Shown here is a 184-nucleotide sequence, a member of the family "RT-7 RNA". The sequence is in the family's curated seed alignment.
[Rfam]
RNA sequence: UCCGGAGUAUCGGUGGUUAAGGCUACCGAUAGUGAGACUUGUAAAUUCAGUAACCUACUGGUAGAGUAAAAGAACGUGAGGGAAUAAAGGCGUACCUUAUGUUUCUGCUAGUUAAUUACCCGGUUGUCAUAAUGUUUACUUAGGUGUAUCCGUUUUGAUAAUUAAUAAAGUGGUUACUUUUUUG
Numbered sequence: 001u002c003c004g005g006a007g008u009a010u011c012g013g014u015g016g017u018u019a020a021g022g023c024u025a026c027c028g029a030u031a032g033u034g035a036g037a038c039u040u041g042u043a044a045a046u047u048c049a050g051u052a053a054c055c056u057a058c059u060g061g062u063a064g065a066g067u068a069a070a071a072g073a074a075c076g077u078g079a080g081g082g083a084a085u086a087a088a089g090g091c092g093u094a095c096c097u098u099a100u101g102u103u104u105c106u107g108c109u110a111g112u113u114a115a116u117u118a119c120c121c122g123g124u125u126g127u128c129a130u131a132a133u134g135u136u137u138a139c140u141u142a143g144g145u146g147u148a149u150c151c152g153u154u155u156u157g158a159u160a161a162u163u164a165a166u167a168a169a170g171u172g173g174u175u176a177c178u179u180u181u182u183u184g
Stems, first nucleotide, its partner, number of pairs: 001037002008031009049178007057112008075101007125160005131154004137146003
Dot-bracket structure: ((.....(((((((((......)))))))))....))...........(((((((.((((((((..........(((((((.............)))))))...))))))))............(((((.((((..(((....)))....)))).)))))...........)))))))......
Rfam classes the family as a small RNA.